[Rfam]
RNA sequence: CCUUCACUGAUGAGGAACCACUUGACUUUCGUUCUUCUGAGCUGGCUGAAGCCAAGUUUAUUGAUCUGAGGAGG
Numbered sequence: 001c002c003u004u005c006a007c008u009g010a011u012g013a014g015g016a017a018c019c020a021c022u023u024g025a026c027u028u029u030c031g032u033u034c035u036u037c038u039g040a041g042c043u044g045g046c047u048g049a050a051g052c053c054a055a056g057u058u059u060a061u062u063g064a065u066c067u068g069a070g071g072a073g074g
Stems, first nucleotide, its partner, number of pairs: 001074003005070001
Dot-bracket structure: (((.(................................................................).)))

A member of the RNA family "Small nucleolar RNA SNORD59" from Calypte anna, 74 nucleotides long. Rfam classes the family as a C/D-box small nucleolar RNA. Gene Ontology terms of the family: RNA processing and nucleolus. Clan: SNORD59 clan. The match comes from Rfam's covariance-model search (73 bits). A reference for the family is Galardi et al. (2002), "Purified box C/D snoRNPs are able to reproduce site-specific 2'-O-methylation of target RNA in vitro", Mol Cell Biol. The family has 24 seed sequences and 1,355 matches in Rfam 15.1.